[Rfam]
RNA sequence: ACACCAGACCGGGCCCCUCUGGCAGCUUGCGGAAAACCGACGGCUGCGAUGUCGGACUGGGCAU
Numbered sequence: 001a002c003a004c005c006a007g008a009c010c011g012g013g014c015c016c017c018u019c020u021g022g023c024a025g026c027u028u029g030c031g032g033a034a035a036a037c038c039g040a041c042g043g044c045u046g047c048g049a050u051g052u053c054g055g056a057c058u059g060g061g062c063a064u
Base pairs, nucleotide, nucleotide: 006058007057009055010054011053012052022047023046024045025044026043028042029041

The record is a 64-nucleotide RNA sequence from Agaricicola taiwanensis, which matches "terC RNA" in Rfam.
Rfam classes the family as a cis-regulatory element.
The organism belongs to Agaricicola, within Bacteria.
The family's consensus secondary structure is taken from published work.